Rfam assigns this 86-nucleotide sequence from Pelusios castaneus to the family "mir-22 microRNA precursor family".
The source organism's lineage runs through Eukaryota, Teleostomi, Dipnotetrapodomorpha, Pelomedusidae and Pelusios.
Pairs were carried over by alignment from the consensus structure, which was predicted with RNAalifold.
For this family Rfam cites "Identification of novel genes coding for small expressed RNAs" (Lagos-Quintana et al., Science, 2001).
Nucleotides: 086
Base pairs, nucleotide, nucleotide: 006082011078012077017072018071019070020069021068022067026062027061028060030059031058032057033056034055035054036053
Number, partner (000 for none) and nucleotide at each position: 001000g002000g003000c004000u005000a006082c007000c008000g009000c010000g011078c012077a013000c014000c015000a016000g017072u018071u019070c020069u021068u022067c023000a024000g025000u026062g027061g028060c029000a030059a031058g032057c033056u034055u035054u036053a037000u038000g039000u040000c041000c042000c043000g044000u045000c046000u047000a048000g049000u050000a051000g052000c053036u054035a055034a056033a057032g058031c059030u060028g061027c062026c063000a064000g065000u066000u067022g068021a069020a070019g071018a072017a073000c074000u075000g076000u077012u078011g079000a080000a081000u082006g083000c084000a085000g086000c